[Rfam]
RNA sequence: GCAAAAGUAAAUAUAUUCAUUCGUAUAAGUUGCAAAUAUGGUGCGGCGUCUCUACAACUAACCGUAAAUUAGUUUCUAUGAAAAAGAUAAAAGGGAUU
Numbered sequence: 001g002c003a004a005a006a007g008u009a010a011a012u013a014u015a016u017u018c019a020u021u022c023g024u025a026u027a028a029g030u031u032g033c034a035a036a037u038a039u040g041g042u043g044c045g046g047c048g049u050c051u052c053u054a055c056a057a058c059u060a061a062c063c064g065u066a067a068a069u070u071a072g073u074u075u076c077u078a079u080g081a082a083a084a085a086g087a088u089a090a091a092a093g094g095g096a097u098u
Stems, first nucleotide, its partner, number of pairs: 020082006029047006056074006
Dot-bracket structure: ...................((((((...((((((.......))))))........((((((.......))))))..))))))................